[Rfam]
RNA sequence: UUCAAAUGAUGUAAUAACAUAUUUGCUACUUCAGAUGGAACUUUGAGUUCCGAAUGAGACAUACCAAUUAUCACCAAGAUCUCUGAUGAA
Numbered sequence: 001u002u003c004a005a006a007u008g009a010u011g012u013a014a015u016a017a018c019a020u021a022u023u024u025g026c027u028a029c030u031u032c033a034g035a036u037g038g039a040a041c042u043u044u045g046a047g048u049u050c051c052g053a054a055u056g057a058g059a060c061a062u063a064c065c066a067a068u069u070a071u072c073a074c075c076a077a078g079a080u081c082u083c084u085g086a087u088g089a090a
Stems, first nucleotide, its partner, number of pairs: 001090004
The family of this 90-nucleotide sequence from Saccharomyces cerevisiae is "Small nucleolar RNA SNORD24". Pairs were carried over by alignment from the consensus structure, which was predicted with PFOLD. Rfam's curators put it in the seed alignment. NCBI's taxonomy places the organism under Eukaryota, Dikarya, Saccharomycotina, Saccharomycetaceae, Saccharomyces. It is annotated as a C/D-box small nucleolar RNA. The literature on the family includes a 1996 paper in J Mol Biol by Nicoloso et al., "Intron-encoded, antisense small nucleolar RNAs: the characterization of nine novel species points to their direct role as guides for the 2'-O-ribose methylation of rRNAs".